[Rfam]
RNA sequence: AGGUAGCAUCCAAAAGAUAAGAUGCCUACCCGAUACAGUAUUAGUAGAGUAAAAUUUUUAUUUCCUGCCUGUGUUAUUGUAAGCAAGUUCUGCAACUCUCAAAUGAUACAACGACUUCA
Numbered sequence: 001a002g003g004u005a006g007c008a009u010c011c012a013a014a015a016g017a018u019a020a021g022a023u024g025c026c027u028a029c030c031c032g033a034u035a036c037a038g039u040a041u042u043a044g045u046a047g048a049g050u051a052a053a054a055u056u057u058u059u060a061u062u063u064c065c066u067g068c069c070u071g072u073g074u075u076a077u078u079g080u081a082a083g084c085a086a087g088u089u090c091u092g093c094a095a096c097u098c099u100c101a102a103a104u105g106a107u108a109c110a111a112c113g114a115c116u117u118c119a
Stems, first nucleotide, its partner, number of pairs: 002030002005027001006025005057111002067097001070094004076088003

The family of this 119-nucleotide sequence from Hordeum vulgare is "Small nucleolar RNA snoR104". The family's consensus secondary structure was predicted with WAR. On this family, see Marker et al., Curr Biol 2002: "Experimental RNomics: identification of 140 candidates for small non-messenger RNAs in the plant Arabidopsis thaliana". Lineage of the source: Eukaryota > Viridiplantae > Liliopsida > Poales > Hordeum vulgare. Its family is annotated with nucleolus and RNA processing in the Gene Ontology.